[Rfam]
RNA sequence: ACCUAGAUGAACAUCGGUGGUCCGGUGUGGGGGCUUCAAACCAGUAGCUGAUAGGAAUCAGAGUGGUUCAAUUCCACUUUCUAGGC
Numbered sequence: 001a002c003c004u005a006g007a008u009g010a011a012c013a014u015c016g017g018u019g020g021u022c023c024g025g026u027g028u029g030g031g032g033g034c035u036u037c038a039a040a041c042c043a044g045u046a047g048c049u050g051a052u053a054g055g056a057a058u059c060a061g062a063g064u065g066g067u068u069c070a071a072u073u074c075c076a077c078u079u080u081c082u083a084g085g086c
Stems, first nucleotide, its partner, number of pairs: 002085006009078001012027006028046002032042002048061005063077004
Selenocysteine transfer RNA: an 86-nucleotide sequence from Argiope bruennichi.
Rfam links the family to the GO term triplet codon-amino acid adaptor activity.
The family's consensus secondary structure is taken from published work.